A member of the RNA family "mir-927 microRNA precursor family" from Polypedilum vanderplanki, 87 nucleotides long. Lineage of the source: Eukaryota > Altocrustacea > Endopterygota > Chironomoidea > Polypedilum. Rfam 15.1 lists 174 matches to the family in 143 species. A search with the family's covariance model found it, with a score of 76 bits. The base pairs follow the family's consensus structure, which was predicted with RNAalifold. For this family Rfam cites "Systematic discovery and characterization of fly microRNAs using 12 Drosophila genomes" (Stark et al., Genome Res, 2007).

[Rfam]
RNA sequence: GUGAUUUCGUUUUGAUUUAGAAUUCCUACGCUUUACCUUUUACUUUAACACAACGGCAAAGCGUUCGGAUUCUGAAACAAAAUAAAU
Numbered sequence: 001g002u003g004a005u006u007u008c009g010u011u012u013u014g015a016u017u018u019a020g021a022a023u024u025c026c027u028a029c030g031c032u033u034u035a036c037c038u039u040u041u042a043c044u045u046u047a048a049c050a051c052a053a054c055g056g057c058a059a060a061g062c063g064u065u066c067g068g069a070u071u072c073u074g075a076a077a078c079a080a081a082a083u084a085a086a087u
Base pairs, nucleotide, nucleotide: 010081011080012079014078016076017075018074019073020072021071023069024068025067028064029063030062031061032060033059034058036056037055